[Rfam]
RNA sequence: GCCCGGAUGACCCUCAGUGGUCUGGGGUGCAGGCUUCAAACCUGUAGCUGUCUAGCGACAGAGUGGUUCAAUUCCACCUUUCGGGCG
Numbered sequence: 001g002c003c004c005g006g007a008u009g010a011c012c013c014u015c016a017g018u019g020g021u022c023u024g025g026g027g028u029g030c031a032g033g034c035u036u037c038a039a040a041c042c043u044g045u046a047g048c049u050g051u052c053u054a055g056c057g058a059c060a061g062a063g064u065g066g067u068u069c070a071a072u073u074c075c076a077c078c079u080u081u082c083g084g085g086c087g
Stems, first nucleotide, its partner, number of pairs: 001086007012027004029045005062079001063077004
This 87-nucleotide sequence belongs to the Rfam family "tRNA". The sequence is in the family's curated seed alignment. Pairs were carried over by alignment from the consensus structure, which is taken from published work. Rfam's curators write: Transfer RNA (tRNA) molecules are approximately 80 nucleotides in length.